[Rfam]
RNA sequence: CGCCGCCGCCCUCCUUGGGCGUUUCCUCCCUAGACUUGGGCCGCUGGUUAACGCCGGCGGCCUUUUUUUGUUGUCUGU
Numbered sequence: 001c002g003c004c005g006c007c008g009c010c011c012u013c014c015u016u017g018g019g020c021g022u023u024u025c026c027u028c029c030c031u032a033g034a035c036u037u038g039g040g041c042c043g044c045u046g047g048u049u050a051a052c053g054c055c056g057g058c059g060g061c062c063u064u065u066u067u068u069u070g071u072u073g074u075c076u077g078u
Stems, first nucleotide, its partner, number of pairs: 008020004038063009
This 78-nucleotide RNA from Methylopila sp. Yamaguchi belongs to the Rfam family "Makes More Granules Regulator RNA (mmgR)". NCBI's taxonomy places the organism under Bacteria, Pseudomonadota, Alphaproteobacteria, Hyphomicrobiales, Methylopila.